[Rfam]
RNA sequence: GUCAUCAAAAGAUGAAAUUGGAAAGAAUAUCUUAGGACACCUUCCUACAUAGCUUUUGUUAAAGGCUAUGGAUGAGAAGAACUUUUCAUCUCUGAUGAUGAC
Numbered sequence: 001g002u003c004a005u006c007a008a009a010a011g012a013u014g015a016a017a018u019u020g021g022a023a024a025g026a027a028u029a030u031c032u033u034a035g036g037a038c039a040c041c042u043u044c045c046u047a048c049a050u051a052g053c054u055u056u057u058g059u060u061a062a063a064g065g066c067u068a069u070g071g072a073u074g075a076g077a078a079g080a081a082c083u084u085u086u087c088a089u090c091u092c093u094g095a096u097g098a099u100g101a102c
Stems, first nucleotide, its partner, number of pairs: 001102007045052002
The record is a 102-nucleotide sequence from Hibiscus trionum, which matches "Small nucleolar RNA snoR31/Z110/Z27" in Rfam. The organism belongs to Hibiscus, within Eukaryota. The literature on the family includes a 2003 paper in Nucleic Acids Res by Chen et al., "The high diversity of snoRNAs in plants: identification and comparative study of 120 snoRNA genes from Oryza sativa". This family contains several related snoRNAs including R31, Z27 and Z110.